[Rfam]
RNA sequence: UUCUUAUCCAGAGAGGUGGAGGGACUGGCCCUAAGAAACCUCGGCAGCGGACGAUUAAGUACUGUGCCAAAUCCAGCAAGCGAAUGAUGCUUGAAAGAUAAGAA
Numbered sequence: 001u002u003c004u005u006a007u008c009c010a011g012a013g014a015g016g017u018g019g020a021g022g023g024a025c026u027g028g029c030c031c032u033a034a035g036a037a038a039c040c041u042c043g044g045c046a047g048c049g050g051a052c053g054a055u056u057a058a059g060u061a062c063u064g065u066g067c068c069a070a071a072u073c074c075a076g077c078a079a080g081c082g083a084a085u086g087a088u089g090c091u092u093g094a095a096a097g098a099u100a101a102g103a104a
Base pairs, nucleotide, nucleotide: 001104002103003102004101005100006099007098008097013042014041015040016039017038021031022030023029025076026075027074028073043068044067045066046065048064049063051060052059072096077093078092079091080090081089082088
RNA: SAM riboswitch aptamer (S box leader)